[Rfam]
RNA sequence: CGAGUCGGCUGGGCGGUCGCGUCGGUGCCUCACGGCAUCGCCGAGGAACGUCCGGACUCCGCAGAGCAGGGUGGUUGUUAACGGCAACCCGGGGUGACCCGCGGGACAGUGCCACAGAGAACAGACCGCCUCCGGUGCCUGAAGCAUCGGCGGUAAGGGUGAAACGGUGAGGUAAGAGCUCACCAGCGCCCCGGGUGACCGGGGCGGCUAGGUAAACCCCACCCGGAGCAAGGCCAAGCAAGGUCGCGGCCGCGAGGUCGUGGCCGGCGCAGGGUUUGAGGGCUGCUCGCCCGAUCCUGCGGGUAGGCCGCAAGAGCCUGUCGGCAACGGCAGGCCGAGAUGGAUGGCCGCCACCGGCGACGCAAGUCACCGGCCACAGAAUCCGGCGUACAGGCCGACUCGUCCG
Numbered sequence: 001c002g003a004g005u006c007g008g009c010u011g012g013g014c015g016g017u018c019g020c021g022u023c024g025g026u027g028c029c030u031c032a033c034g035g036c037a038u039c040g041c042c043g044a045g046g047a048a049c050g051u052c053c054g055g056a057c058u059c060c061g062c063a064g065a066g067c068a069g070g071g072u073g074g075u076u077g078u079u080a081a082c083g084g085c086a087a088c089c090c091g092g093g094g095u096g097a098c099c100c101g102c103g104g105g106a107c108a109g110u111g112c113c114a115c116a117g118a119g120a121a122c123a124g125a126c127c128g129c130c131u132c133c134g135g136u137g138c139c140u141g142a143a144g145c146a147u148c149g150g151c152g153g154u155a156a157g158g159g160u161g162a163a164a165c166g167g168u169g170a171g172g173u174a175a176g177a178g179c180u181c182a183c184c185a186g187c188g189c190c191c192c193g194g195g196u197g198a199c200c201g202g203g204g205c206g207g208c209u210a211g212g213u214a215a216a217c218c219c220c221a222c223c224c225g226g227a228g229c230a231a232g233g234c235c236a237a238g239c240a241a242g243g244u245c246g247c248g249g250c251c252g253c254g255a256g257g258u259c260g261u262g263g264c265c266g267g268c269g270c271a272g273g274g275u276u277u278g279a280g281g282g283c284u285g286c287u288c289g290c291c292c293g294a295u296c297c298u299g300c301g302g303g304u305a306g307g308c309c310g311c312a313a314g315a316g317c318c319u320g321u322c323g324g325c326a327a328c329g330g331c332a333g334g335c336c337g338a339g340a341u342g343g344a345u346g347g348c349c350g351c352c353a354c355c356g357g358c359g360a361c362g363c364a365a366g367u368c369a370c371c372g373g374c375c376a377c378a379g380a381a382u383c384c385g386g387c388g389u390a391c392a393g394g395c396c397g398a399c400u401c402g403u404c405c406g
Stems, first nucleotide, its partner, number of pairs: 001402010011391001012352007020043002023040006048389003052386005057228004064288004069224005074088005089103001090101004104219002109217002111213003126158002128154003132150007166184006186208001187206008232309004238300003242296002280292004316335008
RNA: Bacterial RNase P class A